[Rfam]
RNA sequence: AGCUUUCGACAUGGUUCUGAACAAUACGCAUUGCAUAUGUUGUUGAGAUCAUUAGUUGAAAGCCGA
Numbered sequence: 001a002g003c004u005u006u007c008g009a010c011a012u013g014g015u016u017c018u019g020a021a022c023a024a025u026a027c028g029c030a031u032u033g034c035a036u037a038u039g040u041u042g043u044u045g046a047g048a049u050c051a052u053u054a055g056u057u058g059a060a061a062g063c064c065g066a
Stems, first nucleotide, its partner, number of pairs: 002063009011052005017047002020044007
mir-80 microRNA precursor family: a 66-nucleotide sequence from Caenorhabditis brenneri. Its family is annotated with RISC complex and miRNA-mediated post-transcriptional gene silencing in the Gene Ontology. Pairs were carried over by alignment from the consensus structure, which was predicted with RNAalifold. Taxonomically the source falls in Caenorhabditis (Eukaryota, Nematoda, Rhabditoidea, Peloderinae). It is one of the family's seed sequences. The literature on the family includes a 2009 paper in Genome Res by de Wit et al., "Repertoire and evolution of miRNA genes in four divergent nematode species".